[Rfam]
RNA sequence: GGUCACGAGCUCAGCCCGCACGCCUCCGGACGUGGGCUGACGGCAACCGCGUCGCCCGACACGGUGCCCUCCGGAGAAGACCCGGGUCGACGCCCCCACAGCGUCAGCCAAGCCGGGCUG
Numbered sequence: 001g002g003u004c005a006c007g008a009g010c011u012c013a014g015c016c017c018g019c020a021c022g023c024c025u026c027c028g029g030a031c032g033u034g035g036g037c038u039g040a041c042g043g044c045a046a047c048c049g050c051g052u053c054g055c056c057c058g059a060c061a062c063g064g065u066g067c068c069c070u071c072c073g074g075a076g077a078a079g080a081c082c083c084g085g086g087u088c089g090a091c092g093c094c095c096c097c098a099c100a101g102c103g104u105c106a107g108c109c110a111a112g113c114c115g116g117g118c119u120g
Base pairs, nucleotide, nucleotide: 001082002081003080004079009041011040012039013038014037015036016035021032022031042068043067044066047064048063049062051060052059085109086108087107089105090104091103092102093101

SAM (S-adenosyl methionine) riboswitch aptamer: a 120-nucleotide sequence from Xylanimonas ulmi. The base pairs follow the family's consensus structure, which is taken from published work. The family is grouped with related families in Rfam's "SAM clan".